[Rfam]
RNA sequence: CGCGCGGCAGGACGAAAAGACCCCGGGACCUUCACUAUAGCUUGGUAUUGGUGUUCGGUUCGGUUUGUGUAGGAUAGGUGGGAGACUGUGAAGCGGGCACGCCAGUGUUCGUGGAGUCGUUGUUGAAAUACCACUCUGAUCGUAUUGGACAUCUAACCUCGGACCAUGAUCUGGUUCAGGGACAGUGCCUGGUGGGUAGUUUAACUGGGGCGGUUGCCUCCCAAAAUGUAACGGAGGCGCCCAAAGGUUCCCUCAGCCUGGUUGGCAAUCAGGUGUCGAGUGCAAGUGCACAAGGGAGCUUGACUGUGAGACUGACAGGUCGAGCAGGGACGAAAGUCGGGACUAGUGAUCCGGCACCGGCAAGUGGAAGCGGUGUCGCUCAACGGAUAAAAGGUACCCCGGGGAUAACAGGCUGAUCUUCCCCAAGAGUCCAUAUCGACGGGAUGGUUUGGCACCUCGAUGUCGGCUCGUCGCAUCCUGGGGCUGGAGUAGGUCCCAAGGGUUGGGCUGUUCGCCCAUUAAAGCGGCACGCGAGCUGGGUUUAGAACGUCGUGAGACAGUUCGGUCUCUAUCCGCCGCGCGCGUU
Number, nucleotide and partner (000 for none) at each position: 001c582002g581003c580004g579005c578006g577007g576008c575009a000010g574011g573012a572013c000014g569015a568016a000017a000018a000019g000020a000021c000022c403023c402024c401025g400026g399027g398028a395029c394030c393031u392032u391033c000034a200035c199036u198037a197038u000039a000040g000041c192042u191043u000044g189045g188046u187047a186048u000049u000050g153051g152052u151053g150054u149055u148056c147057g146058g145059u144060u000061c142062g141063g140064u139065u138066u000067g136068u000069g000070u000071a000072g000073g000074a000075u000076a000077g135078g134079u133080g132081g131082g000083a000084g118085a117086c116087u000088g000089u000090g000091a000092a000093g112094c111095g110096g109097g108098c107099a106100c105101g000102c000103c000104a000105g100106u099107g098108u097109u096110c095111g094112u093113g000114g000115a000116g086117u085118c084119g000120u000121u000122g000123u000124u000125g000126a000127a000128a000129u000130a000131c081132c080133a079134c078135u077136c067137u000138g065139a064140u063141c062142g061143u000144a059145u058146u057147g056148g055149a054150c053151a052152u051153c050154u000155a000156a000157c180158c179159u178160c000161g177162g176163a175164c174165c173166a172167u000168g000169a000170u000171c000172u166173g165174g164175u163176u162177c161178a159179g158180g157181g000182a000183c000184a000185g000186u047187g046188c045189c044190u000191g042192g041193u000194g000195g000196g000197u037198a036199g035200u034201u000202u000203a215204a214205c213206u212207g000208g000209g000210g000211c000212g206213g205214u204215u203216g238217c237218c236219u235220c234221c233222c000223a000224a000225a000226a000227u000228g000229u000230a000231a000232c000233g221234g220235a219236g218237g217238c216239g384240c000241c341242c340243a000244a000245a000246g000247g299248u298249u297250c296251c295252c294253u279254c278255a000256g274257c273258c272259u271260g270261g269262u000263u000264g000265g000266c000267a000268a000269u261270c260271a259272g258273g257274u256275g000276u000277c000278g254279a253280g289281u288282g000283c000284a000285a000286g000287u000288g281289c280290a000291c000292a000293a000294g252295g251296g250297a249298g248299c247300u000301u000302g000303a000304c327305u326306g325307u324308g000309a000310g321311a320312c319313u000314g000315a000316c000317a000318g000319g312320u311321c310322g000323a000324g307325c306326a305327g304328g000329g338330a337331c336332g000333a000334a000335a000336g331337u330338c329339g000340g242341g241342a000343c000344u000345a000346g000347u000348g000349a000350u000351c000352c378353g377354g376355c375356a374357c373358c372359g000360g371361c370362a000363a000364g000365u000366g000367g000368a000369a000370g361371c360372g358373g357374u356375g355376u354377c353378g352379c000380u000381c000382a000383a000384c239385g000386g000387a000388u000389a000390a000391a032392a031393g030394g029395u028396a000397c000398c027399c026400c025401g024402g023403g022404g000405a000406u000407a000408a000409c000410a000411g000412g453413c452414u451415g000416a450417u447418c446419u000420u444421c443422c442423c441424c000425a000426a000427g437428a436429g000430u000431c000432c000433a000434u000435a000436u428437c427438g000439a000440c000441g423442g422443g421444a420445u000446g418447g417448u000449u000450u416451g414452g413453c412454a000455c000456c000457u000458c000459g000460a000461u000462g000463u000464c539465g537466g536467c535468u534469c531470g528471u527472c526473g525474c524475a000476u000477c502478c501479u000480g497481g496482g495483g494484c493485u492486g000487g000488a000489g000490u000491a000492g485493g484494u483495c482496c481497c480498a000499a000500g000501g478502g477503u000504u518505g517506g516507g515508c514509u000510g000511u000512u000513c000514g508515c507516c506517c505518a504519u000520u000521a000522a000523a000524g474525c473526g472527g471528c470529a000530c000531g469532c000533g000534a468535g467536c466537u465538g000539g464540g000541u000542u000543u000544a000545g563546a562547a561548c560549g558550u557551c556552g000553u000554g000555a000556g551557a550558c549559a000560g548561u547562u546563c545564g000565g000566u000567c000568u015569c014570u000571a000572u012573c011574c010575g008576c007577c006578g005579c004580g003581c002582g001583c000584g000585u000586u000